[Rfam]
RNA: Molybdenum/Tungsten riboswitch aptamer (Moco RNA motif)
Organism: Vibrio vulnificus
RNA sequence: GGGUUGCCAUAACUCCGAGCUUAACUUGCUAAGUUAUUUUAUUUCAAUGAUGGAAUGAUAAGCAGCUUAAGCCAGUGACAUGAUGUCACAAGGGCGUAAUUGGAAAUGACUACGCCUCCCGUGUUUGGAAAGGUGUUCCGUGGCGCAACAA
Numbered sequence: 001g002g003g004u005u006g007c008c009a010u011a012a013c014u015c016c017g018a019g020c021u022u023a024a025c026u027u028g029c030u031a032a033g034u035u036a037u038u039u040u041a042u043u044u045c046a047a048u049g050a051u052g053g054a055a056u057g058a059u060a061a062g063c064a065g066c067u068u069a070a071g072c073c074a075g076u077g078a079c080a081u082g083a084u085g086u087c088a089c090a091a092g093g094g095c096g097u098a099a100u101u102g103g104a105a106a107u108g109a110c111u112a113c114g115c116c117u118c119c120c121g122u123g124u125u126u127g128g129a130a131a132g133g134u135g136u137u138c139c140g141u142g143g144c145g146c147a148a149c150a151a
Base pairs, nucleotide, nucleotide: 011137012136013135015133016132019072020071021070022069023068024067026065027064028063029062033059034058035057036056037055038054039053040052041051042050043049075089076088077087078086079085092117093116094115095114096113097112098111100109101108102107118128119127